The record is a 77-nucleotide sequence from Papaver somniferum, which matches "Plastid-psbM 3UTR RNA" in Rfam. NCBI's taxonomy places the organism under Eukaryota, Streptophyta, Magnoliopsida, Mesangiospermae, Papaver. It scores 66 bits against the family's covariance model. It is annotated as a cis-regulatory element. Rfam's curators write: Plastid psbM is a non-coding RNA (ncRNA) recognised in plastids. It was found in the three prime untranslated region (3UTR) of psbM gene, its 3UTR location suggests a role in transcript maturation. The literature on the family includes a 2023 paper in Plant Commun by Richter et al., "Retrograde signaling in plants: A critical review focusing on the GUN pathway and beyond".
Nucleotides: 077
Stems, first nucleotide, its partner, number of pairs: 006049002009046015
Number, partner (000 for none) and nucleotide at each position: 001000g002000a003000u004000c005000u006049g007048g008000u009046a010045g011044u012043a013042u014041g015040g016039u017038a018037g019036a020035a021034a022033g023032a024000u025000a026000u027000c028000a029000a030000u031000u032023u033022c034021u035020u036019u037018c038017u039016a040015c041014c042013a043012u044011a045010c046009u047000u048007u049006c050000u051000g052000u053000u054000a055000u056000c057000g058000u059000a060000u061000u062000g063000u064000c065000u066000a067000a068000a069000g070000u071000u072000g073000u074000a075000c076000u077000g